[Rfam]
RNA sequence: ACUAACUAGAAACACAGGGCGGGUUUUCCUGCCCUCUCGAUUGACGGGAAGCACGGACAGACUAGACGCUGGAGGGUCGUUCCCCCAUCCGGCGCGACGCUUACGCAUAAAAAGGUGCGUAAAGCUUCUCACCAAUCUUCGAGGGUAGCGCUGCUACCCUUUUUUUUCUGAGGUA
Numbered sequence: 001a002c003u004a005a006c007u008a009g010a011a012a013c014a015c016a017g018g019g020c021g022g023g024u025u026u027u028c029c030u031g032c033c034c035u036c037u038c039g040a041u042u043g044a045c046g047g048g049a050a051g052c053a054c055g056g057a058c059a060g061a062c063u064a065g066a067c068g069c070u071g072g073a074g075g076g077u078c079g080u081u082c083c084c085c086c087a088u089c090c091g092g093c094g095c096g097a098c099g100c101u102u103a104c105g106c107a108u109a110a111a112a113a114g115g116u117g118c119g120u121a122a123a124g125c126u127u128c129u130c131a132c133c134a135a136u137c138u139u140c141g142a143g144g145g146u147a148g149c150g151c152u153g154c155u156a157c158c159c160u161u162u163u164u165u166u167u168c169u170g171a172g173g174u175a
Stems, first nucleotide, its partner, number of pairs: 012174002017034004021029002035144005040136004046130002054117002058096001068093006074086003
Annotation:
The family of this 175-nucleotide sequence from Pseudescherichia vulneris is "sroC RNA". Rfam links the family to the GO terms regulation of RNA stability and RNA binding. From the family's description: This family consists of a number of bacterial sroC RNA genes of around 160 bases in length. sroC is found in several Enterobacterial species. It base-pairs with GcvB. This interaction triggers the degradation of GcvB by RNase E, alleviating the GcvB-mediated mRNA repression of other amino acid-related transport and metabolic genes. The organism belongs to Pseudescherichia vulneris, within Bacteria.